[Rfam]
RNA sequence: UGGCUCAUGAUGCUAAGUUAUUUAUCUUAGCGGAUUUCAGUGAGAUUUCUAUCAAUGAUCUGAUUGUUACACACACUGAAGCCA
Numbered sequence: 001u002g003g004c005u006c007a008u009g010a011u012g013c014u015a016a017g018u019u020a021u022u023u024a025u026c027u028u029a030g031c032g033g034a035u036u037u038c039a040g041u042g043a044g045a046u047u048u049c050u051a052u053c054a055a056u057g058a059u060c061u062g063a064u065u066g067u068u069a070c071a072c073a074c075a076c077u078g079a080a081g082c083c084a
Stems, first nucleotide, its partner, number of pairs: 001084005
A member of the RNA family "Small nucleolar RNA R11/Z151" from Glycine soja, 84 nucleotides long. The source organism's lineage runs through Eukaryota, Embryophyta, Tracheophyta, Papilionoideae and Glycine subgen. Soja. Rfam 15.1 lists 802 matches to the family in 218 species. The match comes from Rfam's covariance-model search (77 bits). Rfam links the family to the GO terms nucleolus and RNA processing.